RNA: Mammalian CPEB3 ribozyme
Organism: Alligator sinensis
Nucleotides: 076
Base pairs, nucleotide, nucleotide: 013044015042016041017040020076021075022074023073024072025071026070027039049064050063051062052061053060054059
Number, partner (000 for none) and nucleotide at each position: 001000u002000g003000a004000u005000g006000a007000c008000c009000a010000u011000a012000g013044c014000a015042g016041c017040c018000a019000u020076a021075g022074c023073a024072g025071a026070g027039g028000c029000a030000u031000u032000c033000a034000c035000g036000u037000c038000a039027u040017g041016g042015c043000c044013g045000u046000g047000u048000c049064a050063g051062a052061u053060u054059c055000u056000a057000a058000u059054g060053a061052a062051u063050c064049u065000a066000a067000a068000a069000c070026u071025u072024c073023u074022g075021c076020u